[Rfam]
RNA sequence: CUCCCCGAAAUGCAUUUAGGUGCAGCGUCACGUGUUUCUUGCCGGAGGUAGAGCACUGGAUAGCCGAUGGGCCCUACAAGGUUACUGACGUUAGCCAAACUCCGAAUGCCGGUAAGUGAGAGCGUGGCAGUGAGACUGCGGGGGAUAAGCUCCGUAGUCGAGAGGGAAACAGCCCAGACCAUCAGCUAAGGCCCCUAAGCGGUGACUAAGUGGAAAAGGAUGUGGAGUCGCAUUGACAACCAGGAGGUUGGCUUGGAAGCAGCCACCCUUGAAAGAGUGCGUAAUAGCUCACUGGUCAAGUGAUUCCGCGCCGACAAUGUAGCGGGGCUCAAGUCAUCCGCCGAAGCUAUGGCAUUCACAUAUUAAGCUAGGCCUUCGUGGUCCAGGUGUGUGGAUGGGUAGGGGAGCGUCGUGUGGGCAGUGAAGCGGCAGAGUGAUCUAGCCGUGGAGGCCACACGAGUGAGAAU
Numbered sequence: 001c002u003c004c005c006c007g008a009a010a011u012g013c014a015u016u017u018a019g020g021u022g023c024a025g026c027g028u029c030a031c032g033u034g035u036u037u038c039u040u041g042c043c044g045g046a047g048g049u050a051g052a053g054c055a056c057u058g059g060a061u062a063g064c065c066g067a068u069g070g071g072c073c074c075u076a077c078a079a080g081g082u083u084a085c086u087g088a089c090g091u092u093a094g095c096c097a098a099a100c101u102c103c104g105a106a107u108g109c110c111g112g113u114a115a116g117u118g119a120g121a122g123c124g125u126g127g128c129a130g131u132g133a134g135a136c137u138g139c140g141g142g143g144g145a146u147a148a149g150c151u152c153c154g155u156a157g158u159c160g161a162g163a164g165g166g167a168a169a170c171a172g173c174c175c176a177g178a179c180c181a182u183c184a185g186c187u188a189a190g191g192c193c194c195c196u197a198a199g200c201g202g203u204g205a206c207u208a209a210g211u212g213g214a215a216a217a218g219g220a221u222g223u224g225g226a227g228u229c230g231c232a233u234u235g236a237c238a239a240c241c242a243g244g245a246g247g248u249u250g251g252c253u254u255g256g257a258a259g260c261a262g263c264c265a266c267c268c269u270u271g272a273a274a275g276a277g278u279g280c281g282u283a284a285u286a287g288c289u290c291a292c293u294g295g296u297c298a299a300g301u302g303a304u305u306c307c308g309c310g311c312c313g314a315c316a317a318u319g320u321a322g323c324g325g326g327g328c329u330c331a332a333g334u335c336a337u338c339c340g341c342c343g344a345a346g347c348u349a350u351g352g353c354a355u356u357c358a359c360a361u362a363u364u365a366a367g368c369u370a371g372g373c374c375u376u377c378g379u380g381g382u383c384c385a386g387g388u389g390u391g392u393g394g395a396u397g398g399g400u401a402g403g404g405g406a407g408c409g410u411c412g413u414g415u416g417g418g419c420a421g422u423g424a425a426g427c428g429g430c431a432g433a434g435u436g437a438u439c440u441a442g443c444c445g446u447g448g449a450g451g452c453c454a455c456a457c458g459a460g461u462g463a464g465a466a467u
Base pairs, nucleotide, nucleotide: 001407002406003405004404005403006402011024012023013022014021015020026130027128028127029126030125031124032123033122036121038116039115040114041113042112043111044110045109051103052101053100057097058096059095061093062092063091064090069085070083071082072081073080134159135158136157137156138155139154140153141152142151143150164175165174166173179352180351181350182349184348185347186346190342191341192340199339201338202337203336204335205334206333218312219311222309223308224307225306226305227304228303229302230301231300239296240295241294242293243292245269246268247267250264251263252262270274275290279288280287353397354396355395356394357393358392359391360390361389362388363387364386408462410459411458412457413456414455415454416453417452419450426446427445428444429443430442431440432439433438
This 467-nucleotide part of an RNA from Nocardioides jishulii belongs to the Rfam family "Bacterial large subunit ribosomal RNA". NCBI's taxonomy places the organism under Bacteria, Actinomycetota, Propionibacteriales, Nocardioidaceae, Nocardioides. The match comes from Rfam's covariance-model search (2789 bits).